[Rfam]
RNA: Mammalian CPEB3 ribozyme
RNA sequence: AGGCUGCAACUCAAGGCUGUAACAGAAACGCUCAAGGCAUGGCCUGUCAGAUUCCAACAAAUCUGCAAAUUCUGCU
Numbered sequence: 001a002g003g004c005u006g007c008a009a010c011u012c013a014a015g016g017c018u019g020u021a022a023c024a025g026a027a028a029c030g031c032u033c034a035a036g037g038c039a040u041g042g043c044c045u046g047u048c049a050g051a052u053u054c055c056a057a058c059a060a061a062u063c064u065g066c067a068a069a070u071u072c073u074g075c076u
Base pairs, nucleotide, nucleotide: 015044016043017042018041021076023074024073025072026071027070028040030038048065049064050063051062052061053060